[Rfam]
RNA: MIR821 microRNA precursor family
RNA sequence: GACUUCAACUGAAAAAGUCAUCAACAACAAAGUUGUAUAACUCAUCAAUAUCUAUAACUUUUAUUUUUGUCAUUUCUUCAUCCGACAAAGUGAUAGUAACAUUAUUCAUAAAAUUUACAUAUCUCUUAUAUGGUUUUAUAAACUGUAAGAGAGAUAUCUAAAUUUCGUGAAAAAUGUUACUAUCACUUUGGCGGAUAAAAAAAUGACCAAAAUAAAAGUUAUAGAUAUUGAUGUGUUAUACAACUUUGUUGUUGAUGACAUUUUCAGUUGAAAUC
Dot-bracket structure: .............((.(((((.((.((..((((((((((((..((((((((((.(((((((((((((.(((((((.((.((.((.(((((((.((((((.(((.(((((.((.((.(.((((........((((((...))))))........)))).).)).)).))))).))).)))))).))))))).)).)).)).))))))).))))))))))))).))))))))))..))))))))))))..)).)).))))).)).............